[Rfam]
RNA sequence: GCCUGUGAUGAUUCAACCCAACUGUUUAAGGUGUUGUGGAGCCAAGACCCUGUUUAUAGGGAGAACAUACUUGGUGAAGCUAUAUUCAUUUGACUUCAAUGGGUUCAACUGAGGC
Numbered sequence: 001g002c003c004u005g006u007g008a009u010g011a012u013u014c015a016a017c018c019c020a021a022c023u024g025u026u027u028a029a030g031g032u033g034u035u036g037u038g039g040a041g042c043c044a045a046g047a048c049c050c051u052g053u054u055u056a057u058a059g060g061g062a063g064a065a066c067a068u069a070c071u072u073g074g075u076g077a078a079g080c081u082a083u084a085u086u087c088a089u090u091u092g093a094c095u096u097c098a099a100u101g102g103g104u105u106c107a108a109c110u111g112a113g114g115c
Base pairs, nucleotide, nucleotide: 001115002114003113048061049060050059051058052057

Source information
Shown here is a 115-nucleotide RNA sequence from Arachis hypogaea, a member of the family "Small nucleolar RNA Z278". The organism belongs to Arachis, within Eukaryota. On this family, see Chen et al., Nucleic Acids Res 2003: "The high diversity of snoRNAs in plants: identification and comparative study of 120 snoRNA genes from Oryza sativa". By type it is a C/D-box small nucleolar RNA. snoZ278 is a C/D box small nucleolar RNA. Its methylation guide targets have not been reported. The base pairs follow the family's consensus structure, which was predicted with PFOLD.